[Rfam]
RNA: Small nucleolar RNA SNORD60
Nucleotides: 088
Stems, first nucleotide, its partner, number of pairs: 001087004047060005
Number, partner (000 for none) and nucleotide at each position: 001087a002086g003085c004084c005000a006000u007000u008000g009000a010000u011000g012000a013000a014000u015000u016000u017000c018000c019000u020000a021000u022000a023000a024000a025000c026000u027000u028000u029000c030000u031000g032000a033000c034000a035000c036000c037000u038000c039000g040000u041000a042000u043000g044000a045000a046000u047060g048059c049058u050057g051056c052000u053000u054000u055000u056051g057050c058049a059048g060047u061000a062000u063000g064000u065000g066000a067000u068000u069000a070000c071000a072000u073000a074000u075000c076000u077000u078000a079000u080000c081000u082000g083000a084004g085003g086002c087001u088000a